[Rfam]
RNA sequence: GAGCAUUGAUGAAUACUGCUUCAACUGUGAUGGAUGGGUCUAUCAUCAUUAUCUAGUGUUCCAUAUGAAAAGUGAUGCUUCUAAGCUC
Dot-bracket structure: ((((................................................................................))))

A member of the RNA family "small nucleolar RNA snoR114" from Lupinus angustifolius, 88 nucleotides long. It scores 58 bits against the family's covariance model. Its family is annotated with nucleolus and RNA processing in the Gene Ontology. By type it is a C/D-box small nucleolar RNA. For this family Rfam cites "Mining small RNA sequencing data: a new approach to identify small nucleolar RNAs in Arabidopsis" (Chen and Wu, Nucleic Acids Res, 2009). Lineage of the source: Eukaryota > Spermatophyta > genistoids sensu lato > Genisteae > Lupinus. The base pairs follow the family's consensus structure, which was predicted with RNAalifold.